[Rfam]
Nucleotides: 231
Base pairs, nucleotide, nucleotide: 001155002154003153004152005151015143016142017141026133027132030130031129032128036052037051038050039049040048053115054114055113056112057111058110059109156171157170158169
Number, partner (000 for none) and nucleotide at each position: 001155g002154g003153c004152g005151a006000u007000a008000a009000a010000c011000g012000g013000c014000u015143c016142g017141u018000c019000g020000a021000a022000u023000a024000g025000g026133u027132u028000a029000c030130g031129c032128g033000g034000a035000c036052c037051c038050g039049g040048g041000g042000g043000c044000a045000g046000u047000g048040c049039c050038c051037g052036g053115c054114g055113c056112c057111u058110c059109c060000a061000c062000c063000a064000c065000c066000a067000g068000c069000g070000u071000u072000u073000g074000g075000a076000c077000c078000g079000c080000c081000g082000g083000c084000a085000a086000c087000g088000g089000c090000g091000c092000g093000g094000g095000c096000g097000a098000a099000c100000g101000a102000u103000g104000c105000u106000g107000a108000u109059g110058g111057g112056g113055g114054c115053g116000a117000a118000c119000c120000a121000g122000g123000a124000u125000c126000g127000a128032c129031g130030c131000g132027g133026a134000c135000u136000g137000a138000a139000g140000g141017a142016c143015g144000u145000g146000a147000c148000c149000c150000u151005u152004c153003g154002c155001c156171c157170g158169g159000g160000a161000u162000g163000g164000u165000a166000c167000c168000g169158c170157c171156g172000u173000u174000a175000u176000c177000g178000g179000g180000c181000c182000a183000u184000a185000u186000a187000g188000c189000a190000a191000g192000u193000g194000c195000g196000a197000a198000c199000g200000a201000c202000a203000a204000u205000g206000a207000c208000g209000u210000c211000g212000a213000g214000g215000u216000c217000g218000c219000u220000a221000u222000u223000g224000c225000c226000g227000c228000g229000u230000a231000a
Record summary: This 231-nucleotide RNA sequence from Rhodothalassium salexigens belongs to the Rfam family "permuted transfer-messenger RNA". Rfam classes the family as a non-coding RNA gene. Bacterial tmRNA, also known as 10Sa RNA or SsrA, is named for its dual tRNA and mRNA-like properties. Its role is to liberate the mRNA from a stalled ribosome. To accomplish this part of the tmRNA is used as a reading frame that ends in a translation stop signal. The broken mRNA is replaced in the ribosome by the tmRNA and translation of the tmRNA leads to addition of a proteolysis tag to the incomplete protein enabling recognition by a protease. Recently a number of permuted tmRNA genes have been found encoded in two parts. tmRNAs have been identified in eubacteria and some chloroplasts but are absent from archaeal and eukaryote nuclear genomes. The source organism's lineage runs through Bacteria, Pseudomonadati, Alphaproteobacteria, Rhodothalassiales and Rhodothalassium salexigens. The family's consensus secondary structure is taken from published work.